[Rfam]
RNA sequence: ACUGAAUAACAGGGGUGCUAAAACCUUUUUGGCUGAGAUUGAAUGAAAUGGCAUUCUAGACCCUUAUAACCUGAUCCAGGUAAUGCUGGCGUAGGAAAUCUAACUUUCAAAGAGA
Numbered sequence: 001a002c003u004g005a006a007u008a009a010c011a012g013g014g015g016u017g018c019u020a021a022a023a024c025c026u027u028u029u030u031g032g033c034u035g036a037g038a039u040u041g042a043a044u045g046a047a048a049u050g051g052c053a054u055u056c057u058a059g060a061c062c063c064u065u066a067u068a069a070c071c072u073g074a075u076c077c078a079g080g081u082a083a084u085g086c087u088g089g090c091g092u093a094g095g096a097a098a099u100c101u102a103a104c105u106u107u108c109a110a111a112g113a114g115a
Base pairs, nucleotide, nucleotide: 007102008101011064012063013062014061016058017033018032019031020030021029041056042055043054044053070095071094072093073092076089077088078087079086